[Rfam]
This 162-nucleotide RNA sequence from Plasmodium falciparum belongs to the Rfam family "small nucleolar RNA snoR26". Taxonomically the source falls in Plasmodium falciparum (Eukaryota, Sar, Apicomplexa, Plasmodiidae). For this family Rfam cites "Structural RNAs of known and unknown function identified in malaria parasites by comparative genomics and RNA analysis" (Chakrabarti et al., RNA, 2007). Rfam links the family to the GO terms nucleolus and RNA processing.

RNA sequence: AAGGCUUUAAAAAAGGUAAACAAUAAUCCAUGAUGUAAAAAUGUUAUGAGGAUGUUUUUAUUAGAGGCUAAAAAAAAAUGUUUAUGCAAUGAUAAAACGAGUAAAGCUUUUUUUUUAAAGUUUGCCGACUCACCUGACAUUGAAACAACUAAAAUUAUUUGU
Numbered sequence: 001a002a003g004g005c006u007u008u009a010a011a012a013a014a015g016g017u018a019a020a021c022a023a024u025a026a027u028c029c030a031u032g033a034u035g036u037a038a039a040a041a042u043g044u045u046a047u048g049a050g051g052a053u054g055u056u057u058u059u060a061u062u063a064g065a066g067g068c069u070a071a072a073a074a075a076a077a078a079u080g081u082u083u084a085u086g087c088a089a090u091g092a093u094a095a096a097a098c099g100a101g102u103a104a105a106g107c108u109u110u111u112u113u114u115u116u117a118a119a120g121u122u123u124g125c126c127g128a129c130u131c132a133c134c135u136g137a138c139a140u141u142g143a144a145a146c147a148a149c150u151a152a153a154a155u156u157a158u159u160u161g162u
Stems, first nucleotide, its partner, number of pairs: 021161002023158005